[Rfam]
RNA sequence: CGACAGGCAUUGAAAGAGACAGUACUUUCCGAUAUUCACGCAUAGCGAGCCGGGGUUGGUGGAAGCCCGGACGUCGAAACGGAAACGAACAUCACUCUGGAGCCGGAUUGAAGAAAAGCAAUCCCGGGACACCCCGUUAUGGUGGCUGAGAGGCAGUGGACAGACGUCCAUUGCAACUAGGGUGGUAACGCGAGACUCAUUCCUCGUCCCUUUU
Numbered sequence: 001c002g003a004c005a006g007g008c009a010u011u012g013a014a015a016g017a018g019a020c021a022g023u024a025c026u027u028u029c030c031g032a033u034a035u036u037c038a039c040g041c042a043u044a045g046c047g048a049g050c051c052g053g054g055g056u057u058g059g060u061g062g063a064a065g066c067c068c069g070g071a072c073g074u075c076g077a078a079a080c081g082g083a084a085a086c087g088a089a090c091a092u093c094a095c096u097c098u099g100g101a102g103c104c105g106g107a108u109u110g111a112a113g114a115a116a117a118g119c120a121a122u123c124c125c126g127g128g129a130c131a132c133c134c135c136g137u138u139a140u141g142g143u144g145g146c147u148g149a150g151a152g153g154c155a156g157u158g159g160a161c162a163g164a165c166g167u168c169c170a171u172u173g174c175a176a177c178u179a180g181g182g183u184g185g186u187a188a189c190g191c192g193a194g195a196c197u198c199a200u201u202c203c204u205c206g207u208c209c210c211u212u213u214u
Stems, first nucleotide, its partner, number of pairs: 007103002015098004026085005038074003050070005106123005125136003153174007179211004190207005
A member of the RNA family "T-box leader" from Sporosarcina sp. Te-1, 214 nucleotides long. Lineage of the source: Bacteria > Bacilli > Caryophanales > Caryophanaceae > Sporosarcina. Uncharged tRNA acts as the effector for transcription antitermination of genes in the T-box leader family. T-boxes are found upstream of many aminoacyl-tRNA synthetase genes and some amino acid biosynthetic genes usually in Gram-positive bacteria. The anticodon of a specific tRNA base pairs to a specifier sequence within the T-box motif, and the NCCA acceptor tail of the tRNA base pairs to a conserved bulge in the T-box antiterminator hairpin. Rfam classes the family as a cis-regulatory leader.